[Rfam]
Notes
The family of this 74-nucleotide RNA from Marivita geojedonensis is "Singlet oxygen resistance RNA X". It is annotated as a small RNA. The literature on the family includes a 2016 paper in RNA Biol by Peng et al., "Regulation of a polyamine transporter by the conserved 3' UTR-derived sRNA SorX confers resistance to singlet oxygen and organic hydroperoxides in Rhodobacter sphaeroides". Lineage of the source: Bacteria > Pseudomonadati > Alphaproteobacteria > Rhodobacterales > Marivita. The family has 8 seed sequences and 528 matches in Rfam 15.1. About the family: SorX (RSs2461)like SorY is a singlet oxygen induced sRNA that counteracts oxidative stress by targeting mRNA for a transporter in Rhodobacter. A search with the family's covariance model found it, with a score of 71 bits. The base pairs follow the family's consensus structure.
RNA sequence: UCCCGUCGCAUAUGCGGGUCAUCAUAUGCACCUCCCUGUUGGACCUGGCCCCGGAUUUUUCCGGGGUCUUUUUU
Number, nucleotide and partner (000 for none) at each position: 001u000002c000003c000004c000005g000006u000007c000008g029009c028010a027011u026012a025013u024014g023015c000016g000017g000018g000019u000020c000021a000022u000023c014024a013025u012026a011027u010028g009029c008030a000031c000032c000033u000034c000035c000036c000037u000038g000039u000040u000041g000042g000043a000044c000045c000046u000047g068048g067049c066050c065051c064052c063053g062054g061055a000056u000057u000058u000059u000060u000061c054062c053063g052064g051065g050066g049067u048068c047069u000070u000071u000072u000073u000074u000